[Rfam]
Description:
mir-544 microRNA precursor family: a 98-nucleotide sequence from Camelus dromedarius. Rfam links the family to the GO terms miRNA-mediated post-transcriptional gene silencing and RISC complex. A search with the family's covariance model found it, with a score of 75 bits.
RNA sequence: AUCACUUGGGGAUCUUGAUAAAAUGCAGAUUCUAAUUCAGUGGGUCUGGAGUGGGGCCCAAUAUUCUGCAUUUCUAUAAAGCUCCAAGGUGAUGCCAA
Numbered sequence: 001a002u003c004a005c006u007u008g009g010g011g012a013u014c015u016u017g018a019u020a021a022a023a024u025g026c027a028g029a030u031u032c033u034a035a036u037u038c039a040g041u042g043g044g045u046c047u048g049g050a051g052u053g054g055g056g057c058c059c060a061a062u063a064u065u066c067u068g069c070a071u072u073u074c075u076a077u078a079a080a081g082c083u084c085c086a087a088g089g090u091g092a093u094g095c096c097a098a
Stems, first nucleotide, its partner, number of pairs: 003091003009085003014081003018077003021073003025069005031063001033061001